[Rfam]
RNA sequence: UGAUGACAAUUCUCCGGAAUCGCUGUACUGCUUUGAUGAAAGCCCAUUUGAACCCUUUUCCAUCUGAGCACUGAGGGGGCUUACU
Dot-bracket structure: .(.(((..........................................................................))).)
Overview: Small nucleolar RNA MBII-202: an 85-nucleotide RNA sequence from Heterocephalus glaber. On this family, see Huttenhofer et al., EMBO J 2001: "RNomics: an experimental approach that identifies 201 candidates for novel, small, non-messenger RNAs in mouse". By type it is a C/D-box small nucleolar RNA. The match comes from Rfam's covariance-model search (85 bits). The base pairs follow the family's consensus structure, which was predicted with PFOLD. The family has 30 seed sequences and 745 matches in Rfam 15.1.